[Rfam]
RNA sequence: AAAGUUUCUAUGGAAAAUGGAAAUGAGUAUCAAUAAAGAGGAAAAAAAAAAAAAAAUCUGUUCUUAUCAGUUUAAUAUCUGAUACGUCCCCUACCGGGGACCAUAUAUUAAAUUGAUUUUUGGAUCAGGGAGCCGGAACGGGGGCUUGCUCCUUCCACUCCACGCAUCGACCCGGUAUUGCAUUACCUCCAGGUACGGUGCACAUUCU
Numbered sequence: 001a002a003a004g005u006u007u008c009u010a011u012g013g014a015a016a017a018u019g020g021a022a023a024u025g026a027g028u029a030u031c032a033a034u035a036a037a038g039a040g041g042a043a044a045a046a047a048a049a050a051a052a053a054a055a056a057u058c059u060g061u062u063c064u065u066a067u068c069a070g071u072u073u074a075a076u077a078u079c080u081g082a083u084a085c086g087u088c089c090c091c092u093a094c095c096g097g098g099g100a101c102c103a104u105a106u107a108u109u110a111a112a113u114u115g116a117u118u119u120u121u122g123g124a125u126c127a128g129g130g131a132g133c134c135g136g137a138a139c140g141g142g143g144g145c146u147u148g149c150u151c152c153u154u155c156c157a158c159u160c161c162a163c164g165c166a167u168c169g170a171c172c173c174g175g176u177a178u179u180g181c182a183u184u185a186c187c188u189c190c191a192g193g194u195a196c197g198g199u200g201c202a203c204a205u206u207c208u
Base pairs, nucleotide, nucleotide: 065084066083067082068081069080070079086101087100088099089098090097091096129161130160131159132158135155136154141152142151143150144149164201165200166199167198168197169196171193172192174190175189
RNA: U2 spliceosomal RNA